FMN riboswitch aptamer (RFN element): a 118-nucleotide RNA from Halanaerobium hydrogeniformans.
NCBI's taxonomy places the organism under Bacteria, Bacillati, Bacillota, Halanaerobiales, Halanaerobium.
[Rfam]
RNA sequence: AUAUACUAGCGAGGAUGGGUGUGAUUCCCUACCGGUGGUUAAAGUCCACAAGCCUAUUUGGGGUUGAUCUGCUGAAAUUGCAGAACCGACAGUAAAGUCUGGAAGGGAGUUAGUAAAG
Numbered sequence: 001a002u003a004u005a006c007u008a009g010c011g012a013g014g015a016u017g018g019g020u021g022u023g024a025u026u027c028c029c030u031a032c033c034g035g036u037g038g039u040u041a042a043a044g045u046c047c048a049c050a051a052g053c054c055u056a057u058u059u060g061g062g063g064u065u066g067a068u069c070u071g072c073u074g075a076a077a078u079u080g081c082a083g084a085a086c087c088g089a090c091a092g093u094a095a096a097g098u099c100u101g102g103a104a105g106g107g108a109g110u111u112a113g114u115a116a117a118g
Stems, first nucleotide, its partner, number of pairs: 004115007017029003031098002033088002035049004044086002052064003068084005090101003
Its family is annotated with FMN binding in the Gene Ontology. The base pairs follow the family's consensus structure, which is taken from published work. The RFN element is a highly conserved domain that is found frequently in the 5'-untranslated regions of prokaryotic mRNAs that encode for flavin mononucleotide (FMN) biosynthesis and transport proteins.